RNA sequence: GCGGUUGCGCACGGGCGCAAGCGACCUAUAUAGGAGCUGCCGGCCGUGGCCGGCUAUGGCGAUAAAGCCUGCCCGGAAUAGGCGCGGCGGACCCGGGGGCAGUACCCGGCGCCUCCACCAACGCCGUUUCGCUCGCGGGGGCGAAAUAGGUUCGACGCCGCGUGGCAAAGGGGCAGAGUUCGCCCGGCAUGGUACCGCCGUUAUCGGGCCACCCUUACAAGUGCCAACGAUAACCGUUUGGCUCUCGCUGCCUAACGCUUAGGUAAGCGCGGCCGGGAGAGGCCGGGCAACAGAACUCUCCCGACA
Numbered sequence: 001g002c003g004g005u006u007g008c009g010c011a012c013g014g015g016c017g018c019a020a021g022c023g024a025c026c027u028a029u030a031u032a033g034g035a036g037c038u039g040c041c042g043g044c045c046g047u048g049g050c051c052g053g054c055u056a057u058g059g060c061g062a063u064a065a066a067g068c069c070u071g072c073c074c075g076g077a078a079u080a081g082g083c084g085c086g087g088c089g090g091a092c093c094c095g096g097g098g099g100c101a102g103u104a105c106c107c108g109g110c111g112c113c114u115c116c117a118c119c120a121a122c123g124c125c126g127u128u129u130c131g132c133u134c135g136c137g138g139g140g141g142c143g144a145a146a147u148a149g150g151u152u153c154g155a156c157g158c159c160g161c162g163u164g165g166c167a168a169a170g171g172g173g174c175a176g177a178g179u180u181c182g183c184c185c186g187g188c189a190u191g192g193u194a195c196c197g198c199c200g201u202u203a204u205c206g207g208g209c210c211a212c213c214c215u216u217a218c219a220a221g222u223g224c225c226a227a228c229g230a231u232a233a234c235c236g237u238u239u240g241g242c243u244c245u246c247g248c249u250g251c252c253u254a255a256c257g258c259u260u261a262g263g264u265a266a267g268c269g270c271g272g273c274c275g276g277g278a279g280a281g282g283c284c285g286g287g288c289a290a291c292a293g294a295a296c297u298c299u300c301c302c303g304a305c306a
Stems, first nucleotide, its partner, number of pairs: 039054005058184005069176006083162003087158003093109005110143007185200004190211003195207002270285004276301006
RNA: Alphaproteobacteria transfer-messenger RNA